A member of the RNA family "c-di-AMP riboswitch aptamer (ydaO/yuaA leader)" from Blastococcus sp. DSM 46786, 151 nucleotides long. Rfam's curators write: This family represents a conserved RNA structure found upstream of the ydaO and yuaA genes in Bacillus subtilis and related genes in other bacteria. Rfam links the family to the GO terms cyclic-di-AMP binding and regulation of gene expression.

RNA sequence: CACCGGGCGCCGCCGAGCCGUCCUCCGGGGCGGGCCGGGGACCCACCGCAGCACUGGGGUGAAUCGCGCGCCGGGCACGUCCCGUCGCGGGUAGGGCCACUUCCCGCCCGAAUCCGUCAGCUAACCCGGUAGGCGGCACCACGGAAGAAAC
Numbered sequence: 001c002a003c004c005g006g007g008c009g010c011c012g013c014c015g016a017g018c019c020g021u022c023c024u025c026c027g028g029g030g031c032g033g034g035c036c037g038g039g040g041a042c043c044c045a046c047c048g049c050a051g052c053a054c055u056g057g058g059g060u061g062a063a064u065c066g067c068g069c070g071c072c073g074g075g076c077a078c079g080u081c082c083c084g085u086c087g088c089g090g091g092u093a094g095g096g097c098c099a100c101u102u103c104c105c106g107c108c109c110g111a112a113u114c115c116g117u118c119a120g121c122u123a124a125c126c127c128g129g130u131a132g133g134c135g136g137c138a139c140c141a142c143g144g145a146a147g148a149a150a151c
Base pairs, nucleotide, nucleotide: 011135012134013133014132018033019032020031021030022029034130035129036128037127038126039125044056045055057115058114059113065091067089068088069087070086094109095108096107097106
NCBI's taxonomy places the organism under Bacteria, Actinomycetota, Geodermatophilales, Geodermatophilaceae, Blastococcus. It scores 60 bits against the family's covariance model.